RNA: ALIL pseudoknot
Organism: Paucibacter sp. KBW04
RNA sequence: CGCGUUUUUCGCCCAGGCGGAACUCGACCGCCGUCUCAAGUCCUGAAGGCCUUCGUCGACCAGCAUCGCCGGCAGCUUGGGGUCGAGUCGAUCUGCCGCGUCUUGCAGAUUGCCCCA
Numbered sequence: 001c002g003c004g005u006u007u008u009u010c011g012c013c014c015a016g017g018c019g020g021a022a023c024u025c026g027a028c029c030g031c032c033g034u035c036u037c038a039a040g041u042c043c044u045g046a047a048g049g050c051c052u053u054c055g056u057c058g059a060c061c062a063g064c065a066u067c068g069c070c071g072g073c074a075g076c077u078u079g080g081g082g083u084c085g086a087g088u089c090g091a092u093c094u095g096c097c098g099c100g101u102c103u104u105g106c107a108g109a110u111u112g113c114c115c116c117a
Stems, first nucleotide, its partner, number of pairs: 016032005078117005089112002092109005098103001